[Rfam]
RNA sequence: GACGACCGGUCGGACACGCGUGCCCCCGCAGAGGGAACGGCAGGCGGGCCCGACCACAAGUGGAGGCUUCCGAACUCCCACCUGGCCGUCCCGAGGGACGGCGGGUCACCGGUCAGGCGGCGUCAUCCCCGGGAUGACGGCCCGCCCGAGAGCGCGCCCCGCGGUCACCGCGGCGGUGCUCCGGUAGUUCGAGGAGCCCCGCCUGUGAUCGUCCGGGGCAUAUUUU
Numbered sequence: 001g002a003c004g005a006c007c008g009g010u011c012g013g014a015c016a017c018g019c020g021u022g023c024c025c026c027c028g029c030a031g032a033g034g035g036a037a038c039g040g041c042a043g044g045c046g047g048g049c050c051c052g053a054c055c056a057c058a059a060g061u062g063g064a065g066g067c068u069u070c071c072g073a074a075c076u077c078c079c080a081c082c083u084g085g086c087c088g089u090c091c092c093g094a095g096g097g098a099c100g101g102c103g104g105g106u107c108a109c110c111g112g113u114c115a116g117g118c119g120g121c122g123u124c125a126u127c128c129c130c131g132g133g134a135u136g137a138c139g140g141c142c143c144g145c146c147c148g149a150g151a152g153c154g155c156g157c158c159c160c161g162c163g164g165u166c167a168c169c170g171c172g173g174c175g176g177u178g179c180u181c182c183g184g185u186a187g188u189u190c191g192a193g194g195a196g197c198c199c200c201g202c203c204u205g206u207g208a209u210c211g212u213c214c215g216g217g218g219c220a221u222a223u224u225u226u
Stems, first nucleotide, its partner, number of pairs: 004114006012051002052107003055103001057084002060081004064076002085102007116146005122138006156219006162211003169207003172203005178197005
RNA: Streptomyces RNA 1601
Organism: Streptomyces echinoruber